The record is a 92-nucleotide RNA sequence from Synechococcus phage KBS-M-1A, which matches "PhotoRC-II RNA" in Rfam.
[Rfam]
RNA sequence: UAACAAACACCUGCCGUUUGACCGAGACUAGGCAGGUCUACCAAUCCGUCUCUCAUAUCCAGUCUGAGGGUGACUGGAGCAUAGUAUCACCA
Numbered sequence: 001u002a003a004c005a006a007a008c009a010c011c012u013g014c015c016g017u018u019u020g021a022c023c024g025a026g027a028c029u030a031g032g033c034a035g036g037u038c039u040a041c042c043a044a045u046c047c048g049u050c051u052c053u054c055a056u057a058u059c060c061a062g063u064c065u066g067a068g069g070g071u072g073a074c075u076g077g078a079g080c081a082u083a084g085u086a087u088c089a090c091c092a
Stems, first nucleotide, its partner, number of pairs: 010036005017031002024052005058078007

The base pairs follow the family's consensus structure, which is taken from published work.